RNA sequence: CGACCGGGACGGACAGUCGCGGGCACAGCGCCGAAAGGCCGUGCAUGAGGAAAGUCCGGGCUCCACAGGGCAAGGAUAACGGGUAACGCCCGCCCAGAGCGAUCUGAGGAAAAGUGCAACAGAGAAAUACCGCUGUGAGCGGUCCGCCGCUUGCAGUAAGGAUGGAAAGGCGAGGUAAGAGCUCACCCAAUGGCGCGUAAAAGUGCCCAUUGCUGUAAACUCUAUCCGGAGCAACACCGCAGAGGAAGCAAGGCUUGCCCGGCUGCUUCCGAGAAGGUGGCUGGAGCAUACCGGCAACGGUAUGCCUAGAUAGAUGACUGUCGAUCACAGAACCCGGCUUAUAGUCCCGAUCGUGUA
Number, nucleotide and partner (000 for none) at each position: 001c353002g352003a351004c000005c349006g348007g347008g346009a345010c344011g342012g322013a321014c320015a319016g318017u317018c316019g000020c047021g046022g000023g044024c043025a042026c041027a000028g039029c000030g000031c000032c000033g000034a000035a000036a000037g000038g000039c028040c000041g026042u025043g024044c023045a000046u021047g020048a000049g000050g000051a000052a340053a339054g338055u000056c337057c336058g335059g334060g333061c231062u230063c229064c228065a000066c000067a000068g000069g260070g259071c000072a000073a000074g227075g226076a225077u224078a223079a000080c092081g091082g090083g089084u000085a000086a000087c000088g000089c083090c082091c081092g080093c000094c108095c106096a105097g104098a103099g000100c000101g000102a000103u098104c097105u096106g095107a000108g094109g222110a221111a000112a000113a000114g220115u219116g216117c215118a214119a000120c000121a000122g000123a000124g000125a000126a000127a000128u000129a000130c161131c160132g157133c156134u155135g154136u153137g152138a151139g150140c149141g148142g147143u000144c000145c000146g000147c142148c141149g140150c139151u138152u137153g136154c135155a134156g133157u132158a000159a000160g131161g130162a000163u000164g000165g000166a000167a000168a000169g187170g186171c000172g184173a183174g182175g000176u000177a000178a000179g000180a000181g000182c174183u173184c172185a000186c170187c169188c000189a211190a000191u000192g207193g206194c205195g204196c203197g000198u000199a000200a000201a000202a000203g196204u195205g194206c193207c192208c000209a000210u000211u189212g000213c000214u118215g117216u116217a000218a000219a115220c114221u110222c109223u078224a077225u076226c075227c074228g064229g063230a062231g061232c000233a000234a000235c279236a278237c277238c276239g000240c000241a000242g000243a000244g270245g269246a268247a267248g266249c265250a000251a000252g264253g263254c262255u261256u000257g000258c000259c070260c069261g255262g254263c253264u252265g249266c248267u247268u246269c245270c244271g000272a000273g000274a000275a000276g238277g237278u236279g235280g000281c000282u000283g000284g000285a000286g305287c304288a303289u302290a301291c300292c299293g298294g000295c000296a000297a000298c293299g292300g291301u290302a289303u288304g287305c286306c000307u000308a000309g000310a000311u000312a000313g000314a000315u000316g018317a017318c016319u015320g014321u013322c012323g000324a000325u000326c000327a000328c000329a000330g000331a000332a000333c060334c059335c058336g057337g056338c054339u053340u052341a000342u011343a000344g010345u009346c008347c007348c006349g005350a000351u003352c002353g001354u000355g000356u000357a000